[Rfam]
RNA sequence: UUAACAUACUAGGGGUGCUUUUAUAAAAAGCUGAGAGAGAAGUGAUAGUCUUCGAACCCUUUGAACCUGAUCUGUUGCAAACAGCGUAGGAAAGUAUGAAUUAUAUGAA
Dot-bracket structure: .....(((((((((.((((((.....))))).......((((.......)))))..)))).....((((..((((.....))))..))))..)))))............
Rfam assigns this 109-nucleotide RNA sequence from Leuconostoc carnosum to the family "TPP riboswitch aptamer (THI element)". The organism belongs to Leuconostoc carnosum, within Bacteria. Its family is annotated with thiamine pyrophosphate binding in the Gene Ontology.